[Rfam]
RNA sequence: AGCCCUUUUAAUUUCAGUCCCGUGAGGCUGACAAAGGGAAAAGCGCAAACCUUGGACCAUGUUCCGGUGCGCCUUUCACCCCUCUUUGUCAACCACAAGGCAAAGAGGGUUUUUUAU
Numbered sequence: 001a002g003c004c005c006u007u008u009u010a011a012u013u014u015c016a017g018u019c020c021c022g023u024g025a026g027g028c029u030g031a032c033a034a035a036g037g038g039a040a041a042a043g044c045g046c047a048a049a050c051c052u053u054g055g056a057c058c059a060u061g062u063u064c065c066g067g068u069g070c071g072c073c074u075u076u077c078a079c080c081c082c083u084c085u086u087u088g089u090c091a092a093c094c095a096c097a098a099g100g101c102a103a104a105g106a107g108g109g110u111u112u113u114u115u116a117u
Stems, first nucleotide, its partner, number of pairs: 003038006014031006043074001045072002049068003054063002078111001080109011
Rfam assigns this 117-nucleotide sequence from Neobacillus rhizophilus to the family "PyrR binding site". About the family: This family represents the PyrR binding site and terminator structure. It is annotated as a cis-regulatory element. The organism belongs to Neobacillus, within Bacteria.